Shown here is a 138-nucleotide RNA sequence from Clupea harengus, a member of the family "Small nucleolar RNA SNORA57". Pairs were carried over by alignment from the consensus structure, which was predicted with PFOLD. Taxonomically the source falls in Clupea (Eukaryota, Bilateria, Craniata, Otomorpha). The family's RNA type in Rfam is H/ACA-box small nucleolar RNA. A reference for the family is Vitali et al. (2003), "Identification of 13 novel human modification guide RNAs", Nucleic Acids Res. U99 belongs to the H/ACA class of snoRNAs which are thought to guide the sites of modification of uridines to pseudouridines, the target for this family is unknown. Gene Ontology terms of the family: nucleolus and RNA processing.
RNA sequence: CCUCUAUUUCUUGGCACACGCUUCUUACUUCAGUACUAGUGUGUGUAAUGUACGGAGGCAGAGAAAUGUCCUGUGCUAUGUCUUCGGUGCCAGUGUGUUCAUUGUCUGCUGGUUCUAUCCUCAAGCACUGGGACACCC
Numbered sequence: 001c002c003u004c005u006a007u008u009u010c011u012u013g014g015c016a017c018a019c020g021c022u023u024c025u026u027a028c029u030u031c032a033g034u035a036c037u038a039g040u041g042u043g044u045g046u047a048a049u050g051u052a053c054g055g056a057g058g059c060a061g062a063g064a065a066a067u068g069u070c071c072u073g074u075g076c077u078a079u080g081u082c083u084u085c086g087g088u089g090c091c092a093g094u095g096u097g098u099u100c101a102u103u104g105u106c107u108g109c110u111g112g113u114u115c116u117a118u119c120c121u122c123a124a125g126c127a128c129u130g131g132g133a134c135a136c137c138c
Stems, first nucleotide, its partner, number of pairs: 001058005015045006022038001025035001071130001073128004090112006097106001